[Rfam]
RNA sequence: UUAGCCCUGCGGCCCCACGCACCAGGGUAAGAGAGAGUCUCAUUUCCUGCCCUGGCCCGAGGGACCGACUGGCUGGGC
Numbered sequence: 001u002u003a004g005c006c007c008u009g010c011g012g013c014c015c016c017a018c019g020c021a022c023c024a025g026g027g028u029a030a031g032a033g034a035g036a037g038u039c040u041c042a043u044u045u046c047c048u049g050c051c052c053u054g055g056c057c058c059g060a061g062g063g064a065c066c067g068a069c070u071g072g073c074u075g076g077g078c
Base pairs, nucleotide, nucleotide: 001076002075003074004073005072006071010067011066012065014063015062016061018059019058022055023054024053025052026051027050028049029048031046032045033044
The family of this 78-nucleotide sequence from Eptesicus fuscus is "mir-874 microRNA precursor family".
Lineage of the source: Eukaryota > Deuterostomia > Eutheria > Yangochiroptera > Eptesicus.